Bacterial small subunit ribosomal RNA: a 582-nucleotide part of an RNA from an uncultured bacterium.
[Rfam]
RNA sequence: AGAGAUUAGAGUUUGAUCCUGGCUCAGAACGAACGCUGGCGGCGUGGAUAAGACAUGCAAGUCGAACGCUAAUCACGAGGUAGCAAUAUUUCGUGGUUGGAGUGGCGCAAGGGUGCGUAACGCGUGGGUAAUCUACCGUGAAGUUUGGGAUAACUCGCUGAAAGGCGAGCUAAUACCGGAUGUGAAAAUAGAGAGGCAUCUCUUUAUUUUCAGAGCUGGGGACCGUAAGGCCUGGCGCUUCACGAUGAACCCGCGACCUAUCAGCUAGUUGGUGAGGUAACGGCCCACCAAGGCUAAGACGGGUAGCUGGUCUGAGAGGACGACCAGCCACACUGGAACUGAGACACGGUCCAGACACCUACGGGUGGCAGCAGUCGAGAAUUUUUCACAAUGGGCGAAAGCCUGAUGGAGCGACGCCGCGUGGGGGAUGAAUGGCUUCGGCCCGUAAACCCCUGUCAUUUGCGAACAAACCUUGCUAUUUAAAAGAUGGCAAGUUGAUGGUAGCGAAAGAGGAAGGGACGGCUAACUCUGUGCCAGCAGCCGCGGUAAUACAGAGGUCCCAAGCGUUGUUCGGAUUCACUG
Numbered sequence: 001a002g003a004g005a006u007u008a009g010a011g012u013u014u015g016a017u018c019c020u021g022g023c024u025c026a027g028a029a030c031g032a033a034c035g036c037u038g039g040c041g042g043c044g045u046g047g048a049u050a051a052g053a054c055a056u057g058c059a060a061g062u063c064g065a066a067c068g069c070u071a072a073u074c075a076c077g078a079g080g081u082a083g084c085a086a087u088a089u090u091u092c093g094u095g096g097u098u099g100g101a102g103u104g105g106c107g108c109a110a111g112g113g114u115g116c117g118u119a120a121c122g123c124g125u126g127g128g129u130a131a132u133c134u135a136c137c138g139u140g141a142a143g144u145u146u147g148g149g150a151u152a153a154c155u156c157g158c159u160g161a162a163a164g165g166c167g168a169g170c171u172a173a174u175a176c177c178g179g180a181u182g183u184g185a186a187a188a189u190a191g192a193g194a195g196g197c198a199u200c201u202c203u204u205u206a207u208u209u210u211c212a213g214a215g216c217u218g219g220g221g222a223c224c225g226u227a228a229g230g231c232c233u234g235g236c237g238c239u240u241c242a243c244g245a246u247g248a249a250c251c252c253g254c255g256a257c258c259u260a261u262c263a264g265c266u267a268g269u270u271g272g273u274g275a276g277g278u279a280a281c282g283g284c285c286c287a288c289c290a291a292g293g294c295u296a297a298g299a300c301g302g303g304u305a306g307c308u309g310g311u312c313u314g315a316g317a318g319g320a321c322g323a324c325c326a327g328c329c330a331c332a333c334u335g336g337a338a339c340u341g342a343g344a345c346a347c348g349g350u351c352c353a354g355a356c357a358c359c360u361a362c363g364g365g366u367g368g369c370a371g372c373a374g375u376c377g378a379g380a381a382u383u384u385u386u387c388a389c390a391a392u393g394g395g396c397g398a399a400a401g402c403c404u405g406a407u408g409g410a411g412c413g414a415c416g417c418c419g420c421g422u423g424g425g426g427g428a429u430g431a432a433u434g435g436c437u438u439c440g441g442c443c444c445g446u447a448a449a450c451c452c453c454u455g456u457c458a459u460u461u462g463c464g465a466a467c468a469a470a471c472c473u474u475g476c477u478a479u480u481u482a483a484a485a486g487a488u489g490g491c492a493a494g495u496u497g498a499u500g501g502u503a504g505c506g507a508a509a510g511a512g513g514a515a516g517g518g519a520c521g522g523c524u525a526a527c528u529c530u531g532u533g534c535c536a537g538c539a540g541c542c543g544c545g546g547u548a549a550u551a552c553a554g555a556g557g558u559c560c561c562a563a564g565c566g567u568u569g570u571u572c573g574g575a576u577u578c579a580c581u582g
Stems, first nucleotide, its partner, number of pairs: 009025005027572004032568006039420006045413002052376003056373003061106003066103002069099001076093007113331003123255007132248002137244007145179004154169006185210007193202003215236006257303003264294003269291006276284001306328004310321004333354005356367004384410001386409003392405005423453004434443003457513001459508005473493006516561005527556005537544002